[Rfam]
RNA: serC leader
RNA sequence: GGAUGGGACACAUCCCCCCAACGGGAUGCAAUCUAUCUGUGAGGAUAGCCAUG
Numbered sequence: 001g002g003a004u005g006g007g008a009c010a011c012a013u014c015c016c017c018c019c020a021a022c023g024g025g026a027u028g029c030a031a032u033c034u035a036u037c038u039g040u041g042a043g044g045a046u047a048g049c050c051a052u053g
Base pairs, nucleotide, nucleotide: 011028012027013026014025015024016023033048034047035046036045037044038043